[Rfam]
RNA sequence: CCAACAUGUAGCCAAACCCCGGGUGACCGGGGGACGGAAAACCACGGGACUAACCUAUUUUCACCCUAGAGUCGGCCGGGUUGCCGGA
Numbered sequence: 001c002c003a004a005c006a007u008g009u010a011g012c013c014a015a016a017c018c019c020c021g022g023g024u025g026a027c028c029g030g031g032g033g034a035c036g037g038a039a040a041a042c043c044a045c046g047g048g049a050c051u052a053a054c055c056u057a058u059u060u061u062c063a064c065c066c067u068a069g070a071g072u073c074g075g076c077c078g079g080g081u082u083g084c085c086g087g088a
Stems, first nucleotide, its partner, number of pairs: 012037002017032006040082004045078003048073003055069003
Shown here is an 88-nucleotide RNA sequence from Geobacter argillaceus, a member of the family "c-di-GMP-I riboswitch aptamer". The family's consensus secondary structure is taken from published work. The source organism's lineage runs through Bacteria, Thermodesulfobacteriota, Desulfuromonadia, Geobacterales and Geobacter. The match comes from Rfam's covariance-model search (62 bits).